SAM-I/IV (S-adenosyl methionine) riboswitch aptamer: a 100-nucleotide RNA from Chryseobacterium koreense. The base pairs follow the family's consensus structure, which is taken from published work. For this family Rfam cites "The aptamer core of SAM-IV riboswitches mimics the ligand-binding site of SAM-I riboswitches" (Weinberg et al., RNA, 2008). The organism belongs to Chryseobacterium koreense, within Bacteria. Clan: SAM clan. The match comes from Rfam's covariance-model search (49 bits).
RNA sequence: CACAAUCAUCACGAGAUCCGCCGAGUGCGGACGCCAACCGAGAGUUAACCCUCCACGGUGGUAUAGUAUGAGGGCAGUCCUGCCACAAUAAAAGGUUUAC
Numbered sequence: 001c002a003c004a005a006u007c008a009u010c011a012c013g014a015g016a017u018c019c020g021c022c023g024a025g026u027g028c029g030g031a032c033g034c035c036a037a038c039c040g041a042g043a044g045u046u047a048a049c050c051c052u053c054c055a056c057g058g059u060g061g062u063a064u065a066g067u068a069u070g071a072g073g074g075c076a077g078u079c080c081u082g083c084c085a086c087a088a089u090a091a092a093a094g095g096u097u098u099a100c
Base pairs, nucleotide, nucleotide: 006071007070008069009068015032017031018030019029020028021027033062034061035060038058039057040056042053043052047096049094073084074083075082076081